[Rfam]
RNA sequence: UGCCCGGUACGCGACUGGCGAUAGGCGCUGCACCCUUCCAGGGUAGCUGGCGCUGACGUGGAUCCCCCGGUGGCCCUGAAGGGCUGCCACCAAACCACUAGGAAGCGUACCGCUACAAGCCCCUGGGCUUGCAGCGAUCGAGCCGUUCGCCUGGGCAGCCCUU
Numbered sequence: 001u002g003c004c005c006g007g008u009a010c011g012c013g014a015c016u017g018g019c020g021a022u023a024g025g026c027g028c029u030g031c032a033c034c035c036u037u038c039c040a041g042g043g044u045a046g047c048u049g050g051c052g053c054u055g056a057c058g059u060g061g062a063u064c065c066c067c068c069g070g071u072g073g074c075c076c077u078g079a080a081g082g083g084c085u086g087c088c089a090c091c092a093a094a095c096c097a098c099u100a101g102g103a104a105g106c107g108u109a110c111c112g113c114u115a116c117a118a119g120c121c122c123c124u125g126g127g128c129u130u131g132c133a134g135c136g137a138u139c140g141a142g143c144c145g146u147u148c149g150c151c152u153g154g155g156c157a158g159c160c161c162u163u
Stems, first nucleotide, its partner, number of pairs: 005112008015102002017151005058098004142156003